[Rfam]
RNA sequence: ACAGGAUGAAGGCCACAUCGCCCGUUACGCACAGAGAUCCCUUCUCGGUUUCUCUUCUUCGUGGGCGGGAAGGUCUGAACGUCUCCCCAUCUGUUGGCAGGAUACUGCCGUGUUCCAAUGGAACUCAACAGCCGGGAUGUCCCGGUAGGCGGAAACAAGAAACUCGACUCGAUAUGCGAAGCCCUGGCCGCGGGAGGGGAUUAGCCAGCCGCCAGAUUGCCCCAAAGAUCCAGCCUCUUCGGACUGAUGAGGGGCGAUGGCGUUUCGUGGUCUUCAAAUUCCGCCGGGAGUUGGGUGAAUGUGUCUUUUUCUCUUCGGAGGGAUUUCCGACUCGCGGUUCGUCCGUGUUUUUCAAGUUCGGUUAACUUUGUCUUCCAGCGAGGGCUAAGCAAAGGGCUUUCCUGACGGCGACGGUAUCCCUGUGUGGUGGCCUAGCCGAAGCACCGGGUUUACUGUUGCAUUGAGUGUCGGGACCCUCCUCGUGUUUUGGGGACUUGGAUACCGGCUUAGUUGGUUUUCCGCACGUUUACCCUUUAGUGCAAUUUGUGGCGCACGGAAUUUCUUGCCCUUUGGGCGGCAACCCGUGGAACUCAAUUCGGCCUACUCUCAUCCUGU
Numbered sequence: 001a002c003a004g005g006a007u008g009a010a011g012g013c014c015a016c017a018u019c020g021c022c023c024g025u026u027a028c029g030c031a032c033a034g035a036g037a038u039c040c041c042u043u044c045u046c047g048g049u050u051u052c053u054c055u056u057c058u059u060c061g062u063g064g065g066c067g068g069g070a071a072g073g074u075c076u077g078a079a080c081g082u083c084u085c086c087c088c089a090u091c092u093g094u095u096g097g098c099a100g101g102a103u104a105c106u107g108c109c110g111u112g113u114u115c116c117a118a119u120g121g122a123a124c125u126c127a128a129c130a131g132c133c134g135g136g137a138u139g140u141c142c143c144g145g146u147a148g149g150c151g152g153a154a155a156c157a158a159g160a161a162a163c164u165c166g167a168c169u170c171g172a173u174a175u176g177c178g179a180a181g182c183c184c185u186g187g188c189c190g191c192g193g194g195a196g197g198g199g200a201u202u203a204g205c206c207a208g209c210c211g212c213c214a215g216a217u218u219g220c221c222c223c224a225a226a227g228a229u230c231c232a233g234c235c236u237c238u239u240c241g242g243a244c245u246g247a248u249g250a251g252g253g254g255c256g257a258u259g260g261c262g263u264u265u266c267g268u269g270g271u272c273u274u275c276a277a278a279u280u281c282c283g284c285c286g287g288g289a290g291u292u293g294g295g296u297g298a299a300u301g302u303g304u305c306u307u308u309u310u311c312u313c314u315u316c317g318g319a320g321g322g323a324u325u326u327c328c329g330a331c332u333c334g335c336g337g338u339u340c341g342u343c344c345g346u347g348u349u350u351u352u353c354a355a356g357u358u359c360g361g362u363u364a365a366c367u368u369u370g371u372c373u374u375c376c377a378g379c380g381a382g383g384g385c386u387a388a389g390c391a392a393a394g395g396g397c398u399u400u401c402c403u404g405a406c407g408g409c410g411a412c413g414g415u416a417u418c419c420c421u422g423u424g425u426g427g428u429g430g431c432c433u434a435g436c437c438g439a440a441g442c443a444c445c446g447g448g449u450u451u452a453c454u455g456u457u458g459c460a461u462u463g464a465g466u467g468u469c470g471g472g473a474c475c476c477u478c479c480u481c482g483u484g485u486u487u488u489g490g491g492g493a494c495u496u497g498g499a500u501a502c503c504g505g506c507u508u509a510g511u512u513g514g515u516u517u518u519c520c521g522c523a524c525g526u527u528u529a530c531c532c533u534u535u536a537g538u539g540c541a542a543u544u545u546g547u548g549g550c551g552c553a554c555g556g557a558a559u560u561u562c563u564u565g566c567c568c569u570u571u572g573g574g575c576g577g578c579a580a581c582c583c584g585u586g587g588a589a590c591u592c593a594a595u596u597c598g599g600c601c602u603a604c605u606c607u608c609a610u611c612c613u614g615u
Stems, first nucleotide, its partner, number of pairs: 001615004007609003012550006020066005034052006075599005084289004112124004131146005148285007166272003552586005